A member of the RNA family "sul1 RNA" from Yoonia vestfoldensis, 57 nucleotides long. It is one of the family's seed sequences. The family's consensus secondary structure is taken from published work. Taxonomically the source falls in Yoonia vestfoldensis (Bacteria, Alphaproteobacteria, Paracoccaceae, Yoonia).
RNA sequence: CAUGGACCUGGGGGUGACCUCGGGUGGCUCUUCCGGCCGCCUAUCCGCCGGACAACC
Number, nucleotide and partner (000 for none) at each position: 001c000002a000003u000004g000005g000006a025007c024008c023009u022010g021011g020012g000013g000014g000015u000016g000017a000018c000019c000020u011021c010022g009023g008024g007025u006026g000027g000028c000029u000030c000031u000032u052033c051034c050035g049036g048037c047038c000039g000040c000041c000042u000043a000044u000045c000046c000047g037048c036049c035050g034051g033052a032053c000054a000055a000056c000057c000